[Rfam]
RNA sequence: UCCUGCAGUGGUGAUGGAUCUCGCCCGAGCCGCCGUUGCUCGAACCGCCCAGAUGGCUGAUAGUUCCUACCGUCGA
Numbered sequence: 001u002c003c004u005g006c007a008g009u010g011g012u013g014a015u016g017g018a019u020c021u022c023g024c025c026c027g028a029g030c031c032g033c034c035g036u037u038g039c040u041c042g043a044a045c046c047g048c049c050c051a052g053a054u055g056g057c058u059g060a061u062a063g064u065u066c067c068u069a070c071c072g073u074c075g076a
Stems, first nucleotide, its partner, number of pairs: 010025004016067003020063002047057003
RNA: Fluoride riboswitch aptamer (crcB RNA motif)